[Rfam]
Nucleotides: 137
Base pairs, nucleotide, nucleotide: 001055002054003053004052005051006050014042015041016040017039018038019037067130068129069128072124073123075121076120087119090116091115094111095110096109097108
Number, partner (000 for none) and nucleotide at each position: 001055g002054c003053a004052u005051g006050g007000a008000c009000g010000a011000a012000u013000u014042c015041u016040g017039u018038g019037u020000u021000a022000c023000u024000c025000u026000g027000u028000c029000a030000g031000u032000a033000g034000u035000a036000a037019a038018u039017g040016c041015a042014g043000u044000c045000a046000g047000a048000c049000a050006c051005c052004a053003u054002g055001c056000a057000a058000a059000a060000g061000u062000a063000u064000u065000g066000u067130u068129u069128c070000a071000c072124u073123c074000c075121u076120c077000u078000c079000u080000u081000a082000u083000u084000a085000a086000g087119g088000c089000c090116g091115a092000g093000u094111g095110c096109u097108a098000u099000c100000c101000u102000g103000u104000g105000u106000c107000u108097u109096a110095g111094c112000c113000a114000g115091u116090c117000a118000a119087c120076g121075g122000a123073g124072g125000a126000g127000u128069g129068a130067a131000c132000a133000c134000a135000c136000u137000g

Description: Shown here is a 137-nucleotide RNA sequence from Oncorhynchus kisutch, a member of the family "Small nucleolar RNA SNORA15". About the family: ACA15 is a member of the H/ACA class of snoRNA that guide the sites of modification of uridines to pseudouridines. The family's consensus secondary structure was predicted with RNAfold. For this family Rfam cites "RNomics: an experimental approach that identifies 201 candidates for novel, small, non-messenger RNAs in mouse" (Huttenhofer et al., EMBO J, 2001).